The family of this 600-nucleotide part of an RNA from Bursaphelenchus xylophilus is "Eukaryotic large subunit ribosomal RNA". The literature on the family includes a 2002 paper in BMC Bioinformatics by Cannone et al., "The comparative RNA web (CRW) site: an online database of comparative sequence and structure information for ribosomal, intron, and other RNAs". Its family is annotated with ribosome and structural constituent of ribosome in the Gene Ontology.
RNA sequence: AAAGAAGACCCUGUUGAGCUUGACUCUAGUCUGACUUUGUGAAGAAUCAUGCAUGGUGUAGUAUAAGUGGGAGUGUUUCGGCACGUCAGUGAAAUACCACUACUUUCAUCGUUUCCUUACUUAUUCGGUAAUACGGGGAACGUUUUCUCUGAAAACUUGUGAUUGAUUUUAAGCCGGCGUACUUGGUGCGCCGGCGACCCGCGCCGAUGACAUUGUCAGGCGGGGAGUUUGACUGGGGCGGUACAUCUAUCAAACAGUAACGUAGGUGUCCUAAGGUAAGCUCAGUAAGGACGGAAACCUUACGUAGAGUAAAAGGACAAAAGCUUACUUGAUCUUGAUUUUCAGUACGAAUACAGACCGCGAAAGCGUGGCCUAUCGAUCCUUUCGAUUUGUAAAGUUUACAGCAAGAGGUGUCAGAAAAGUUACCACAGGGAUAACUGGCUUGUGGCAGCCAAGCGUCCAUAGCGACGUUGCUUUUUGAUCCUUCGAUGUCGGCUCUUCCUAUCAUUGCGUAGCAGAAUGCGCAAAGCGUUGGAUUGUUCACCCACUAAUAGGGAACGUGAGCUGGGUUUAGACCGUCGUGAGACAGGUUAGUUUUAU
Number, nucleotide and partner (000 for none) at each position: 001a000002a598003a597004g000005a000006a000007g000008a000009c000010c432011c431012u430013g429014u000015u428016g427017a424018g423019c422020u421021u420022g000023a228024c227025u226026c225027u000028a000029g000030u220031c219032u218033g217034a216035c215036u000037u000038u000039g120040u119041g118042a117043a000044g115045a114046a113047u000048c111049a109050u108051g107052c000053a105054u000055g103056g000057u000058g000059u000060a000061g000062u000063a000064u000065a000066a101067g100068u099069g098070g097071g000072a000073g084074u083075g000076u000077u000078u000079c000080g000081g000082c000083a074084c073085g000086u000087c000088a000089g000090u000091g000092a000093a000094a000095u000096a000097c070098c069099a068100c067101u066102a000103c055104u000105u053106u000107c051108a050109u049110c000111g048112u000113u046114u045115c044116c000117u042118u041119a040120c039121u000122u000123a000124u000125u207126c206127g205128g204129u000130a000131a000132u000133a000134c201135g200136g199137g198138g000139a000140a000141c000142g156143u155144u154145u153146u152147c000148u000149c000150u000151g000152a146153a145154a144155a143156c142157u000158u000159g000160u000161g000162a000163u000164u000165g000166a000167u000168u000169u000170u000171a000172a000173g195174c194175c193176g192177g191178c190179g189180u188181a000182c000183u000184u000185g000186g000187u000188g180189c179190g178191c177192c176193g175194g174195c173196g000197a000198c137199c136200c135201g134202c000203g000204c128205c127206g126207a125208u000209g000210a000211c000212a000213u000214u000215g035216u034217c033218a032219g031220g030221c000222g000223g000224g000225g026226a025227g024228u023229u000230u000231g244232a242233c241234u240235g000236g000237g000238g000239c000240g234241g233242u232243a000244c231245a267246u266247c265248u264249a263250u262251c000252a000253a000254a000255c000256a000257g000258u000259a000260a000261c000262g250263u249264a248265g247266g246267u245268g000269u000270c371271c370272u000273a000274a000275g000276g328277u327278a326279a325280g324281c323282u308283c307284a000285g303286u302287a301288a300289g299290g298291a000292c000293g000294g000295a000296a000297a000298c290299c289300u288301u287302a286303c285304g000305u000306a000307g283308a282309g318310u317311a000312a000313a000314a000315g000316g000317a310318c309319a000320a000321a000322a000323g281324c280325u279326u278327a277328c276329u000330u000331g000332a000333u357334c356335u355336u000337g000338a352339u351340u350341u349342u000343c000344a000345g000346u000347a000348c000349g341350a340351a339352u338353a000354c000355a335356g334357a333358c000359c368360g367361c366362g000363a000364a000365a000366g361367c360368g359369u000370g271371g270372c000373c000374u000375a000376u000377c000378g000379a000380u000381c000382c410383u409384u408385u407386c000387g405388a000389u000390u404391u403392g402393u401394a000395a000396a000397g000398u000399u000400u000401a393402c392403a391404g390405c387406a000407a385408g384409a383410g382411g000412u000413g000414u000415c000416a000417g000418a000419a000420a021421a020422g019423u018424u017425a000426c000427c016428a015429c013430a012431g011432g010433g000434a000435u000436a000437a000438c000439u000440g000441g482442c000443u480444u000445g479446u000447g475448g474449c473450a472451g471452c470453c000454a000455a000456g466457c465458g000459u000460c000461c000462a000463u000464a000465g457466c456467g000468a000469c000470g452471u451472u450473g449474c448475u447476u000477u000478u000479u445480g443481a000482u441483c000484c000485u000486u000487c000488g000489a000490u000491g000492u000493c568494g566495g565496c564497u563498c560499u557500u556501c555502c554503u553504a000505u000506c531507a000508u000509u526510g525511c524512g523513u522514a521515g000516c000517a000518g000519a000520a000521u514522g513523c512524g511525c510526a509527a000528a000529g000530c000531g506532u000533u547534g546535g545536a000537u543538u000539g000540u000541u000542c000543a537544c000545c535546c534547a533548c000549u000550a000551a000552u000553a503554g502555g501556g500557a499558a000559c000560g498561u000562g000563a497564g496565c495566u494567g000568g493569g000570u000571u000572u000573a000574g592575a591576c590577c589578g587579u586580c585581g000582u000583g000584a000585g580586a579587c578588a000589g577590g576591u575592u574593a000594g000595u000596u000597u003598u002599a000600u000